Notes:
This 78-nucleotide sequence from Hermetia illucens belongs to the Rfam family "mir-310 microRNA precursor family". Clan: mir-92 microRNA precursor clan. NCBI's taxonomy places the organism under Eukaryota, Protostomia, Ecdysozoa, Altocrustacea, Hermetia.
[Rfam]
RNA sequence: UGGUUCCCAGGCUGUGCUUUGGGCAAUGUUUGUUUUAUUUGAGCAGUGAAUAUUGCACAUUUCCCGGCCUGGGAAACG
Numbered sequence: 001u002g003g004u005u006c007c008c009a010g011g012c013u014g015u016g017c018u019u020u021g022g023g024c025a026a027u028g029u030u031u032g033u034u035u036u037a038u039u040u041g042a043g044c045a046g047u048g049a050a051u052a053u054u055g056c057a058c059a060u061u062u063c064c065c066g067g068c069c070u071g072g073g074a075a076a077c078g
Stems, first nucleotide, its partner, number of pairs: 001078002004075004010069002013066002016063001020059002023056010